[Rfam]
RNA: U1 spliceosomal RNA
RNA sequence: AUAAUAAAAGUGUAAUUAAGAUACCAUGAUCACGAAGGUGGUUUUCCCAGGACGAGGCUUAUCCAUUGCACUCCGGAUGUGCUGACCCCUGCGAUUUCCCCAAAUGUGGGAAACUCGACACAUAAUUUGUGGUAGUGGGGGACUGCGUUCGCGCUCGCCCCUG
Numbered sequence: 001a002u003a004a005u006a007a008a009a010g011u012g013u014a015a016u017u018a019a020g021a022u023a024c025c026a027u028g029a030u031c032a033c034g035a036a037g038g039u040g041g042u043u044u045u046c047c048c049a050g051g052a053c054g055a056g057g058c059u060u061a062u063c064c065a066u067u068g069c070a071c072u073c074c075g076g077a078u079g080u081g082c083u084g085a086c087c088c089c090u091g092c093g094a095u096u097u098c099c100c101c102a103a104a105u106g107u108g109g110g111a112a113a114c115u116c117g118a119c120a121c122a123u124a125a126u127u128u129g130u131g132g133u134a135g136u137g138g139g140g141g142a143c144u145g146c147g148u149u150c151g152c153g154c155u156c157g158c159c160c161c162u163g
Stems, first nucleotide, its partner, number of pairs: 012121002019045003023042005049090003054086001056083003060079005092117003095113003099109002137162005145154003